[Rfam]
RNA sequence: GUUGCAGUUAAAAAGCUCGUAGUUGGACCUUGGGCGUGGGGGCCGGGUUGGCCGCAAGGCACGACUCGGAACUCUUGCCUCUUUGGGGGACUCGUCGUUCUGCGGCGAGGUAACCCGGGUUACUGUGAAGAAAUUAGAGUGUUUAAAGCAGGCGUUUGCUUGAAUACAUCAGCAUGGAAUAACAAGAUAGGACUUUGUUCUACUUGUUGGUUUGGGAACUAUAGUAAUGAUUAAUAGGGCCAGUUGGGGGCAUUAGUAUUCAGUAGUCAGAGGUGAAAUUCUUGGAUUUACUGAAGACUAACUAGUGCGAAAGCAUUUGCCAAGGAUGUUUUCAUUAAUCAAGAACGAAAGUUAGGGGAUCGAAGACGAUCAGAUACCGUCGUAGUCUUAACUAUAAACGAUGCCGACUCGGGAUCGGCAGAAGUCGUUUGCGACUCUGUCGGCACCGUGUGAGAAAUCAAAGUUUUUGGGUUCUGGGGGGAGUAUGGUCGCAAGGCUGAAACUUAAAGGAAU
Numbered sequence: 001g002u003u004g005c006a007g008u009u010a011a012a013a014a015g016c017u018c019g020u021a022g023u024u025g026g027a028c029c030u031u032g033g034g035c036g037u038g039g040g041g042g043c044c045g046g047g048u049u050g051g052c053c054g055c056a057a058g059g060c061a062c063g064a065c066u067c068g069g070a071a072c073u074c075u076u077g078c079c080u081c082u083u084u085g086g087g088g089g090a091c092u093c094g095u096c097g098u099u100c101u102g103c104g105g106c107g108a109g110g111u112a113a114c115c116c117g118g119g120u121u122a123c124u125g126u127g128a129a130g131a132a133a134u135u136a137g138a139g140u141g142u143u144u145a146a147a148g149c150a151g152g153c154g155u156u157u158g159c160u161u162g163a164a165u166a167c168a169u170c171a172g173c174a175u176g177g178a179a180u181a182a183c184a185a186g187a188u189a190g191g192a193c194u195u196u197g198u199u200c201u202a203c204u205u206g207u208u209g210g211u212u213u214g215g216g217a218a219c220u221a222u223a224g225u226a227a228u229g230a231u232u233a234a235u236a237g238g239g240c241c242a243g244u245u246g247g248g249g250g251c252a253u254u255a256g257u258a259u260u261c262a263g264u265a266g267u268c269a270g271a272g273g274u275g276a277a278a279u280u281c282u283u284g285g286a287u288u289u290a291c292u293g294a295a296g297a298c299u300a301a302c303u304a305g306u307g308c309g310a311a312a313g314c315a316u317u318u319g320c321c322a323a324g325g326a327u328g329u330u331u332u333c334a335u336u337a338a339u340c341a342a343g344a345a346c347g348a349a350a351g352u353u354a355g356g357g358g359a360u361c362g363a364a365g366a367c368g369a370u371c372a373g374a375u376a377c378c379g380u381c382g383u384a385g386u387c388u389u390a391a392c393u394a395u396a397a398a399c400g401a402u403g404c405c406g407a408c409u410c411g412g413g414a415u416c417g418g419c420a421g422a423a424g425u426c427g428u429u430u431g432c433g434a435c436u437c438u439g440u441c442g443g444c445a446c447c448g449u450g451u452g453a454g455a456a457a458u459c460a461a462a463g464u465u466u467u468u469g470g471g472u473u474c475u476g477g478g479g480g481g482a483g484u485a486u487g488g489u490c491g492c493a494a495g496g497c498u499g500a501a502a503c504u505u506a507a508a509g510g511a512a513u
Base pairs, nucleotide, nucleotide: 005476006475007474013473015346017344018343022339023338024337237333238332239331241328242327244325245324249321250320251319252318255299256298259295260294261293262292263291264290265289266288270281271280272279307314308313351392352391353390354389355388356387361385365381366380367379368378403472404471405470406465407464408463410448411447412446415443416442417441418440419439420438421437422436424435425434426433452459453458478505479504480503487498488497489496490495
RNA: Eukaryotic small subunit ribosomal RNA, nucleotides 601 to 1113
Organism: Paramicrosporidium saccamoebae